[Rfam]
RNA sequence: UCCAUGUGACUUGGAAUCUAAAGGAAGCUCUAGGCAAACCCUCGGUCUGAGGUACACGAAUCACAUUCGAGGUUUCUGUUCCAGGACGAGUUUGCUAAACAAAACGAAGUCCUAAAUAUCCCCAGAUGGUGCAGGAAUAAAUGUGCAGAUGGAUGAGGGGAAAGUGUAUGAAC
Numbered sequence: 001u002c003c004a005u006g007u008g009a010c011u012u013g014g015a016a017u018c019u020a021a022a023g024g025a026a027g028c029u030c031u032a033g034g035c036a037a038a039c040c041c042u043c044g045g046u047c048u049g050a051g052g053u054a055c056a057c058g059a060a061u062c063a064c065a066u067u068c069g070a071g072g073u074u075u076c077u078g079u080u081c082c083a084g085g086a087c088g089a090g091u092u093u094g095c096u097a098a099a100c101a102a103a104a105c106g107a108a109g110u111c112c113u114a115a116a117u118a119u120c121c122c123c124a125g126a127u128g129g130u131g132c133a134g135g136a137a138u139a140a141a142u143g144u145g146c147a148g149a150u151g152g153a154u155g156a157g158g159g160g161a162a163a164g165u166g167u168a169u170g171a172a173c
Stems, first nucleotide, its partner, number of pairs: 001015004006010001027173001029171002034165002039159006045150005062145005072138003076134004081129002084112004090105004
RNA: Group II catalytic intron D1-D4-3